[Rfam]
RNA sequence: UUGCAAGUUCAAAGUCAUAGUAGAAGUGUUCACAGCGCAGCCUGUCAGAUCCCAAUGAAUCUGAGAAUUCUGCU
Numbered sequence: 001u002u003g004c005a006a007g008u009u010c011a012a013a014g015u016c017a018u019a020g021u022a023g024a025a026g027u028g029u030u031c032a033c034a035g036c037g038c039a040g041c042c043u044g045u046c047a048g049a050u051c052c053c054a055a056u057g058a059a060u061c062u063g064a065g066a067a068u069u070c071u072g073c074u
Base pairs, nucleotide, nucleotide: 014041015040019074020073021072022071023070024069025068026038027037028036046063047062048061049060050059052057

A member of the RNA family "Mammalian CPEB3 ribozyme" from Alligator mississippiensis, 74 nucleotides long. The base pairs follow the family's consensus structure, which is taken from published work.